Shown here is a 370-nucleotide part of an RNA from Candidatus Epulonipiscium viviparus, a member of the family "Bacterial large subunit ribosomal RNA".
RNA sequence: GAGAUAUAAGUGAGAAUCUUAUAGGCCGAAUAUCUAAGGUUUCCAGGGUAAAGCUGAUCUGCCCUGGGUAAGUCGGGACCUAAGGCAAGGACGAAAGUCGUAGUCGAUGGACAACUGGUGGAAAUUCCAGUACUACCUAUAAUCAGAACUGCAGGGACGCAGAGAAAUAAGAAUUGCACGAAAUGGGAAUGCGUGUGUAAGCAACAAGCGGUCUUCUAGGAAAAACCGGAAGAGCAAAGCAAGUUGUGAUACGGACCGAAAUUUAAGUAGGGAAGAUUCUGAAAGAGCUGCCAAGAAAAGCUGCUAUUGCAUUAUAGGUACCCGUACCGCAAACCGACACAGGUAGAUGAGGAGAGAAUCCUAAGGCCGA
Numbered sequence: 001g002a003g004a005u006a007u008a009a010g011u012g013a014g015a016a017u018c019u020u021a022u023a024g025g026c027c028g029a030a031u032a033u034c035u036a037a038g039g040u041u042u043c044c045a046g047g048g049u050a051a052a053g054c055u056g057a058u059c060u061g062c063c064c065u066g067g068g069u070a071a072g073u074c075g076g077g078a079c080c081u082a083a084g085g086c087a088a089g090g091a092c093g094a095a096a097g098u099c100g101u102a103g104u105c106g107a108u109g110g111a112c113a114a115c116u117g118g119u120g121g122a123a124a125u126u127c128c129a130g131u132a133c134u135a136c137c138u139a140u141a142a143u144c145a146g147a148a149c150u151g152c153a154g155g156g157a158c159g160c161a162g163a164g165a166a167a168u169a170a171g172a173a174u175u176g177c178a179c180g181a182a183a184u185g186g187g188a189a190u191g192c193g194u195g196u197g198u199a200a201g202c203a204a205c206a207a208g209c210g211g212u213c214u215u216c217u218a219g220g221a222a223a224a225a226c227c228g229g230a231a232g233a234g235c236a237a238a239g240c241a242a243g244u245u246g247u248g249a250u251a252c253g254g255a256c257c258g259a260a261a262u263u264u265a266a267g268u269a270g271g272g273a274a275g276a277u278u279c280u281g282a283a284a285g286a287g288c289u290g291c292c293a294a295g296a297a298a299a300g301c302u303g304c305u306a307u308u309g310c311a312u313u314a315u316a317g318g319u320a321c322c323c324g325u326a327c328c329g330c331a332a333a334c335c336g337a338c339a340c341a342g343g344u345a346g347a348u349g350a351g352g353a354g355a356g357a358a359u360c361c362u363a364a365g366g367c368c369g370a
Base pairs, nucleotide, nucleotide: 005023006022007021008020009019010018024368025367026366027365032348033347034346035345038328039327043067044066045065046064047063048062052060053059074324075323076322077321079110080109084105085104086103088101090099091098092097114131115130116129117128118127134320135319136318137317138316139315140314141313142312143311151304152303153302154301159291160290161289162288170280171279172278173277174276176196177195178194179193180192197252198251201247202246203245204244208240209239212233213232214231215230216229217228219227220226256271257270259268334343335342350362351361352360353359